[Rfam]
RNA: mraW RNA
Organism: Propioniciclava flava
RNA sequence: CACCGCCCGCGCGGUGAGGCUUCGGCCCGACCGAUGCCCUGACGCCACUUCCCCGGCGCCAGGUCAUCGGUACGGACCGGAACCCGACUGCACGGACCGCAACGA
Numbered sequence: 001c002a003c004c005g006c007c008c009g010c011g012c013g014g015u016g017a018g019g020c021u022u023c024g025g026c027c028c029g030a031c032c033g034a035u036g037c038c039c040u041g042a043c044g045c046c047a048c049u050u051c052c053c054c055g056g057c058g059c060c061a062g063g064u065c066a067u068c069g070g071u072a073c074g075g076a077c078c079g080g081a082a083c084c085c086g087a088c089u090g091c092a093c094g095g096a097c098c099g100c101a102a103c104g105a
Stems, first nucleotide, its partner, number of pairs: 011091005018084002021081005027075003031070006038063004043058003